[Rfam]
RNA sequence: GAAACGGGAACCCGGCACGGCUCGGGCCGGUCGGACCGGGAGUGCUUCACCGCAAGGUGAGGCGGCA
Numbered sequence: 001g002a003a004a005c006g007g008g009a010a011c012c013c014g015g016c017a018c019g020g021c022u023c024g025g026g027c028c029g030g031u032c033g034g035a036c037c038g039g040g041a042g043u044g045c046u047u048c049a050c051c052g053c054a055a056g057g058u059g060a061g062g063c064g065g066c067a
Base pairs, nucleotide, nucleotide: 011040012039013038014037015036018029019028020027021026044063045062046061047060048059049058050057051056